The family of this 116-nucleotide RNA sequence from Tetracentron sinense is "Small nucleolar RNA Z278". On this family, see Chen et al., Nucleic Acids Res 2003: "The high diversity of snoRNAs in plants: identification and comparative study of 120 snoRNA genes from Oryza sativa". Rfam's curators write: snoZ278 is a C/D box small nucleolar RNA. Its methylation guide targets have not been reported. Rfam links the family to the GO terms nucleolus and RNA processing. By type it is a C/D-box small nucleolar RNA.
[Rfam]
RNA sequence: ACCAGUGAUGAUAUUAUCCAUAUUUUUUGAGGUGUAGUGGAACCAAGCCCUGUUUUAUAGGGGAACCUACUUGGGGAAGCUUCAUUUUCCAUGACAUUAAUGGAUAUAGUUGAGGU
Numbered sequence: 001a002c003c004a005g006u007g008a009u010g011a012u013a014u015u016a017u018c019c020a021u022a023u024u025u026u027u028u029g030a031g032g033u034g035u036a037g038u039g040g041a042a043c044c045a046a047g048c049c050c051u052g053u054u055u056u057a058u059a060g061g062g063g064a065a066c067c068u069a070c071u072u073g074g075g076g077a078a079g080c081u082u083c084a085u086u087u088u089c090c091a092u093g094a095c096a097u098u099a100a101u102g103g104a105u106a107u108a109g110u111u112g113a114g115g116u
Stems, first nucleotide, its partner, number of pairs: 001116003049061003